Annotation:
This 126-nucleotide RNA from Ancylobacter novellus belongs to the Rfam family "Glycine riboswitch aptamer". Lineage of the source: Bacteria > Pseudomonadota > Hyphomicrobiales > Xanthobacteraceae > Ancylobacter novellus. It scores 38 bits against the family's covariance model.
RNA sequence: ACAAUCUGGAGAGAGGCGUCGGCACCCGUCAGUGCCAGGCGUCCACCGAAGGGGAAGCCCGGGAUUUCAAGGCGGCGUCGCCGUCUGUCUCGGGGCGAGCUCUCAGGUACCGCGACAGAUUGGGGA
Numbered sequence: 001a002c003a004a005u006c007u008g009g010a011g012a013g014a015g016g017c018g019u020c021g022g023c024a025c026c027c028g029u030c031a032g033u034g035c036c037a038g039g040c041g042u043c044c045a046c047c048g049a050a051g052g053g054g055a056a057g058c059c060c061g062g063g064a065u066u067u068c069a070a071g072g073c074g075g076c077g078u079c080g081c082c083g084u085c086u087g088u089c090u091c092g093g094g095g096c097g098a099g100c101u102c103u104c105a106g107g108u109a110c111c112g113c114g115a116c117a118g119a120u121u122g123g124g125g126a
Stems, first nucleotide, its partner, number of pairs: 002122007015043006045108003048104002052102003058095002